[Rfam]
RNA sequence: GUGUUGCCUAGGGUAGCUCCCGAACGCCGUCACUCUAACGGCUGGCAACACUUCCCUUUAGAGG
Numbered sequence: 001g002u003g004u005u006g007c008c009u010a011g012g013g014u015a016g017c018u019c020c021c022g023a024a025c026g027c028c029g030u031c032a033c034u035c036u037a038a039c040g041g042c043u044g045g046c047a048a049c050a051c052u053u054c055c056c057u058u059u060a061g062a063g064g
Stems, first nucleotide, its partner, number of pairs: 001051008011021003026042004033064002036061001
Notes: The record is a 64-nucleotide RNA sequence from Vibrio proteolyticus, which matches "int-alpA RNA" in Rfam. The match comes from Rfam's covariance-model search (42 bits). Taxonomically the source falls in Vibrio proteolyticus (Bacteria, Gammaproteobacteria, Vibrionales, Vibrionaceae). About the family: Acidobacteria (1 example), Planctomycetes (1 example), Proteobacteria. The base pairs follow the family's consensus structure, which is taken from published work. It is annotated as a small RNA.